A member of the RNA family "Glutamine riboswitch aptamer (glnA leader)", 56 nucleotides long.
The sequence is in the family's curated seed alignment.

RNA sequence: AUCGUUCAAUUUGCAUUUUGCAAAUCGGAAGUAGGUUCUAACCGAAGGAACGCGGA
Numbered sequence: 001a002u003c004g005u006u007c008a009a010u011u012u013g014c015a016u017u018u019u020g021c022a023a024a025u026c027g028g029a030a031g032u033a034g035g036u037u038c039u040a041a042c043c044g045a046a047g048g049a050a051c052g053c054g055g056a
Stems, first nucleotide, its partner, number of pairs: 003052005009025005028053001034043003